Shown here is a 134-nucleotide RNA sequence from Aotus nancymaae, a member of the family "U4 spliceosomal RNA". It scores 66 bits against the family's covariance model. The source organism's lineage runs through Eukaryota, Deuterostomia, Gnathostomata, Theria and Aotus. A reference for the family is Bai et al. (2018), "Structures of the fully assembled Saccharomyces cerevisiae spliceosome before activation", Science. Pairs were carried over by alignment from the consensus structure, which is taken from published work.
[Rfam]
RNA sequence: AACUUUGCACGGUGGCAGUAUCGUAGCUAAUGAGAUUUAUCCGAGGCAUGAUUAUUGCUAAUUGAAAACUUUUCUCAGGUGAUAAUAGCUUUUUUUGUAGAUUGUUUGGCAUUUUCAUCAUCAACAUUCAUGUC
Numbered sequence: 001a002a003c004u005u006u007g008c009a010c011g012g013u014g015g016c017a018g019u020a021u022c023g024u025a026g027c028u029a030a031u032g033a034g035a036u037u038u039a040u041c042c043g044a045g046g047c048a049u050g051a052u053u054a055u056u057g058c059u060a061a062u063u064g065a066a067a068a069c070u071u072u073u074c075u076c077a078g079g080u081g082a083u084a085a086u087a088g089c090u091u092u093u094u095u096u097g098u099a100g101a102u103u104g105u106u107u108g109g110c111a112u113u114u115u116c117a118u119c120a121u122c123a124a125c126a127u128u129c130a131u132g133u134c
Stems, first nucleotide, its partner, number of pairs: 020052005026047003034042001081110001083108001084106005090100002124133003